Shown here is an 83-nucleotide sequence from Niallia taxi, a member of the family "c-di-GMP-I riboswitch aptamer".
NCBI's taxonomy places the organism under Bacteria, Bacillota, Caryophanales, Bacillaceae, Niallia.
Pairs were carried over by alignment from the consensus structure, which is taken from published work.
A search with the family's covariance model found it, with a score of 79 bits.
RNA sequence: AAUUUACUUGGGCAAAUUUUACGAAAGUAAAAGACGCAAAGCCACGGGCCUAAAGCAAAAGCAAUGGCAGCCGGGUUGCAGAU
Numbered sequence: 001a002a003u004u005u006a007c008u009u010g011g012g013c014a015a016a017u018u019u020u021a022c023g024a025a026a027g028u029a030a031a032a033g034a035c036g037c038a039a040a041g042c043c044a045c046g047g048g049c050c051u052a053a054a055g056c057a058a059a060a061g062c063a064a065u066g067g068c069a070g071c072c073g074g075g076u077u078g079c080a081g082a083u
Base pairs, nucleotide, nucleotide: 012037013036017032018031019030020029021028022027040077041076042075043074045073046072047071048068049067050066055062056061